RNA: RNase MRP
RNA sequence: GCGCAGUGCGGAGGGCCACCUCGGUGUUUCAUAAGGCAGAAGCUCGCUGGCAGCUUUAAGCGCGGCGGGGCUGUGCGCUGCAUCCAUGAUUGAAUCGUACACCGGGCGAAAGUCCCCGGGCGACGGGGCAGAGAGUGCCAGUCUGGAAGGGCAGGACCCUUGUGUGCCUUUUGGCCGCAGGGCAGCUCGCCAUAGCAACAGUUAUGUGGCCAGUGGAGAUCCAAUCCACCAACUAAACGGGGCUUACUCCCGCACUGACG
Numbered sequence: 001g002c003g004c005a006g007u008g009c010g011g012a013g014g015g016c017c018a019c020c021u022c023g024g025u026g027u028u029u030c031a032u033a034a035g036g037c038a039g040a041a042g043c044u045c046g047c048u049g050g051c052a053g054c055u056u057u058a059a060g061c062g063c064g065g066c067g068g069g070g071c072u073g074u075g076c077g078c079u080g081c082a083u084c085c086a087u088g089a090u091u092g093a094a095u096c097g098u099a100c101a102c103c104g105g106g107c108g109a110a111a112g113u114c115c116c117c118g119g120g121c122g123a124c125g126g127g128g129c130a131g132a133g134a135g136u137g138c139c140a141g142u143c144u145g146g147a148a149g150g151g152c153a154g155g156a157c158c159c160u161u162g163u164g165u166g167c168c169u170u171u172u173g174g175c176c177g178c179a180g181g182g183c184a185g186c187u188c189g190c191c192a193u194a195g196c197a198a199c200a201g202u203u204a205u206g207u208g209g210c211c212a213g214u215g216g217a218g219a220u221c222c223a224a225u226c227c228a229c230c231a232a233c234u235a236a237a238c239g240g241g242g243c244u245u246a247c248u249c250c251c252g253c254a255c256u257g258a259c260g
Stems, first nucleotide, its partner, number of pairs: 002260002004257008014211006021105007039084002042081001110245003114242004127139004141152004154183001160180005213229005